Rfam assigns this 102-nucleotide sequence from Prunus armeniaca to the family "Small nucleolar RNA snoR99".
The family has 9 seed sequences and 733 matches in Rfam 15.1.
The family's RNA type in Rfam is H/ACA-box small nucleolar RNA.
The organism belongs to Prunus, within Eukaryota.
RNA sequence: GGGUUUGGGGAUGAACAGGUCCCUCAAAUUGAUCUUUCUCCAUUCACCUUUGUAAGCUGUUUUCUGUUUGUUUCUGGCUGAUCAUUGUUGGAUGGGAUGGAU
Numbered sequence: 001g002g003g004u005u006u007g008g009g010g011a012u013g014a015a016c017a018g019g020u021c022c023c024u025c026a027a028a029u030u031g032a033u034c035u036u037u038c039u040c041c042a043u044u045c046a047c048c049u050u051u052g053u054a055a056g057c058u059g060u061u062u063u064c065u066g067u068u069u070g071u072u073u074c075u076g077g078c079u080g081a082u083c084a085u086u087g088u089u090g091g092a093u094g095g096g097a098u099g100g101a102u
Stems, first nucleotide, its partner, number of pairs: 039096006052082002055079005